[Rfam]
RNA sequence: CUGCAAGCCUCGUGUCCUUGGGUCUGCCGUGUCCCCAUGCAUUCCUACAGUGCUUGCAAGGAUAUUUUGAAAUGGUUUGCUUUGCCCUGCUGCAUCUAGAGCAAGGUGAUAGAAACUUCAGACAAUU
Numbered sequence: 001c002u003g004c005a006a007g008c009c010u011c012g013u014g015u016c017c018u019u020g021g022g023u024c025u026g027c028c029g030u031g032u033c034c035c036c037a038u039g040c041a042u043u044c045c046u047a048c049a050g051u052g053c054u055u056g057c058a059a060g061g062a063u064a065u066u067u068u069g070a071a072a073u074g075g076u077u078u079g080c081u082u083u084g085c086c087c088u089g090c091u092g093c094a095u096c097u098a099g100a101g102c103a104a105g106g107u108g109a110u111a112g113a114a115a116c117u118u119c120a121g122a123c124a125a126u127u
Stems, first nucleotide, its partner, number of pairs: 003057006015041001017039001020035003024031001068120004080106006087099003